[Rfam]
RNA sequence: GAGAAAUGAGAGUUCCUUGCAGCCCAAAACAGUUCUUGAUGAAAAGAACUCUUUUUUUUUUUUUGUUUUGGACUGAAGGGAGCUCCCAAUUCUU
Dot-bracket structure: ......((.(((((((((..((.(((((......................................))))).))..))))))))).))......
MIR319 microRNA precursor family: a 94-nucleotide RNA from Nyssa sinensis. Rfam links the family to the GO terms RISC complex and miRNA-mediated post-transcriptional gene silencing. It scores 83 bits against the family's covariance model.